[Rfam]
The record is a 66-nucleotide sequence from Cebus imitator, which matches "MAT2A 3'UTR stem loop A" in Rfam.
RNA sequence: GCCUUUUCCCCCACAGACUUCUUGGCGUGGACUACAGAGAAGACUUCAAGCUCUGAGGGAAAGGGC
Numbered sequence: 001g002c003c004u005u006u007u008c009c010c011c012c013a014c015a016g017a018c019u020u021c022u023u024g025g026c027g028u029g030g031a032c033u034a035c036a037g038a039g040a041a042g043a044c045u046u047c048a049a050g051c052u053c054u055g056a057g058g059g060a061a062a063g064g065g066c
Base pairs, nucleotide, nucleotide: 001066002065003064004063009059010058011057014055015054016053017052020048024044026042027035028034